[Rfam]
Description
A member of the RNA family "Bacterial large signal recognition particle RNA" from Ectobacillus ponti, 264 nucleotides long. Clan: SRP clan. It is annotated as a non-coding RNA gene. The source organism's lineage runs through Bacteria, Bacillati, Caryophanales, Bacillaceae and Ectobacillus. Rfam links the family to the GO terms SRP-dependent cotranslational protein targeting to membrane, signal sequence recognition and signal recognition particle, plasma membrane targeting. The signal recognition particle (SRP) is a universally conserved ribonucleoprotein involved in the co-translational targeting of proteins to membranes.

RNA sequence: CCGUGCUAGGCGGGGAGGUAGCGGUGCCCUGUACCCGCAAUCCGCUCCAGCGGGGCUGAAUCCCUUCUCGAGGCUGCGUCACUGUAAGGCUGCCCUGGGUAAGUGGCGUUGACGUCUGGGUCCUGCGCAACGGGAAUUCGUGAACCUUGUCAGAUCCGGAAGGAAGCAGCAAUAAGCGAAAGCUCUCGUGUGCCGCGGGGGUGCCUGGACCGAGCUAACUGCUCAGGUAACGCUUAUGGUGCGCAGUCGACAGAAGGUGCACGG
Numbered sequence: 001c002c003g004u005g006c007u008a009g010g011c012g013g014g015g016a017g018g019u020a021g022c023g024g025u026g027c028c029c030u031g032u033a034c035c036c037g038c039a040a041u042c043c044g045c046u047c048c049a050g051c052g053g054g055g056c057u058g059a060a061u062c063c064c065u066u067c068u069c070g071a072g073g074c075u076g077c078g079u080c081a082c083u084g085u086a087a088g089g090c091u092g093c094c095c096u097g098g099g100u101a102a103g104u105g106g107c108g109u110u111g112a113c114g115u116c117u118g119g120g121u122c123c124u125g126c127g128c129a130a131c132g133g134g135a136a137u138u139c140g141u142g143a144a145c146c147u148u149g150u151c152a153g154a155u156c157c158g159g160a161a162g163g164a165a166g167c168a169g170c171a172a173u174a175a176g177c178g179a180a181a182g183c184u185c186u187c188g189u190g191u192g193c194c195g196c197g198g199g200g201g202u203g204c205c206u207g208g209a210c211c212g213a214g215c216u217a218a219c220u221g222c223u224c225a226g227g228u229a230a231c232g233c234u235u236a237u238g239g240u241g242c243g244c245a246g247u248c249g250a251c252a253g254a255a256g257g258u259g260c261a262c263g264g
Base pairs, nucleotide, nucleotide: 001264002263003262004261005260006259009057010056011055012030013029014028015027017025019023034054035053036052037051038050063257064256065255066254067253068252072248073247074246075245076244080241081240082239083238084237085236086235087234088233091229092228095226096225097224098223099222100221103219104218105216106215107214114210115209116208117207118206119205120204121203122199123198124197125196126195127194128190129189131188132187133186134185135184137180138179139178140177141176147172148171149170150169155164156163157162